[Rfam]
RNA sequence: UUCCAUUGUUAAGUCAAGACACCUUCCAGCAAUUUCGCUCUUUUACAAUGGAUGGGUGCUCUGUUACGACUUUGGUAGAUCAAAUCCCUUUCCGCCGCACUUUGCCUUCGGGUAUUGUCUAGACCAAUGCUUACCGUUUUGGAAAGCUGGUCGUAAGGAUUGGGGAAUGUUGCGUUUGAGUUGAAGACCUCUAUUGCUGCAUUUGUAGCAGAUAGAUGGGGGUCGUCUUAGUAAUGCUUCAUACACAC
Numbered sequence: 001u002u003c004c005a006u007u008g009u010u011a012a013g014u015c016a017a018g019a020c021a022c023c024u025u026c027c028a029g030c031a032a033u034u035u036c037g038c039u040c041u042u043u044u045a046c047a048a049u050g051g052a053u054g055g056g057u058g059c060u061c062u063g064u065u066a067c068g069a070c071u072u073u074g075g076u077a078g079a080u081c082a083a084a085u086c087c088c089u090u091u092c093c094g095c096c097g098c099a100c101u102u103u104g105c106c107u108u109c110g111g112g113u114a115u116u117g118u119c120u121a122g123a124c125c126a127a128u129g130c131u132u133a134c135c136g137u138u139u140u141g142g143a144a145a146g147c148u149g150g151u152c153g154u155a156a157g158g159a160u161u162g163g164g165g166a167a168u169g170u171u172g173c174g175u176u177u178g179a180g181u182u183g184a185a186g187a188c189c190u191c192u193a194u195u196g197c198u199g200c201a202u203u204u205g206u207a208g209c210a211g212a213u214a215g216a217u218g219g220g221g222g223u224c225g226u227c228u229u230a231g232u233a234a235u236g237c238u239u240c241a242u243a244c245a246c247a248c
Base pairs, nucleotide, nucleotide: 003075004074005073017062018061019060020058021057022056023055024052025051026050028039029038030037086165087164088163089162093117094116095110122152123151124150125149126148130146131145132144134142135141136140167242168241169240172237173236174235175234183227184226186224188221189220190219191218194211195210196209197208198207199206200205